Shown here is a 133-nucleotide RNA from Tropicibacter naphthalenivorans, a member of the family "FMN riboswitch aptamer (RFN element)". The family's consensus secondary structure is taken from published work. The source organism's lineage runs through Bacteria, Pseudomonadota, Alphaproteobacteria, Rhodobacterales and Tropicibacter.

[Rfam]
RNA sequence: GAUCGUUCUCAGGGCGGGGUGAAAUUCCCCACCGGCGGUGAUAGCCCGCGAGCGCCCUUGUUUCGGCAAGGGGUCAGCAGAUCCGGUGAAAUUCCGGGGCCGACGGUCAUAGUCCGGAUGAAAGAGAACCACG
Numbered sequence: 001g002a003u004c005g006u007u008c009u010c011a012g013g014g015c016g017g018g019g020u021g022a023a024a025u026u027c028c029c030c031a032c033c034g035g036c037g038g039u040g041a042u043a044g045c046c047c048g049c050g051a052g053c054g055c056c057c058u059u060g061u062u063u064c065g066g067c068a069a070g071g072g073g074u075c076a077g078c079a080g081a082u083c084c085g086g087u088g089a090a091a092u093u094c095c096g097g098g099g100c101c102g103a104c105g106g107u108c109a110u111a112g113u114c115c116g117g118a119u120g121a122a123a124g125a126g127a128a129c130c131a132c133g
Base pairs, nucleotide, nucleotide: 003131005129006128007127008126009125010124017029018028019027031113032112033102034101035049036048037047038046044100045099052078053077082098083097084096085095086094104116105115106114